Rfam assigns this 102-nucleotide RNA to the family "DUF3577 RNA". Pairs were carried over by alignment from the consensus structure, which is taken from published work. The sequence is in the family's curated seed alignment. By type it is a cis-regulatory element.
[Rfam]
RNA sequence: CGAAUCGGAUAAGUGUCUUCGGACACGAAACUCGUCUGCAAUCCCGGCAUCACCGCGCAAGCGGUGUGACGACUCUCUCAAAUGCUGCUUUGUAGCACCUCA
Numbered sequence: 001c002g003a004a005u006c007g008g009a010u011a012a013g014u015g016u017c018u019u020c021g022g023a024c025a026c027g028a029a030a031c032u033c034g035u036c037u038g039c040a041a042u043c044c045c046g047g048c049a050u051c052a053c054c055g056c057g058c059a060a061g062c063g064g065u066g067u068g069a070c071g072a073c074u075c076u077c078u079c080a081a082a083u084g085c086u087g088c089u090u091u092g093u094a095g096c097a098c099c100u101c102a
Base pairs, nucleotide, nucleotide: 013026014025015024016023017022032072033071034070035069036068051066052065053064054063055062056061086097087096088095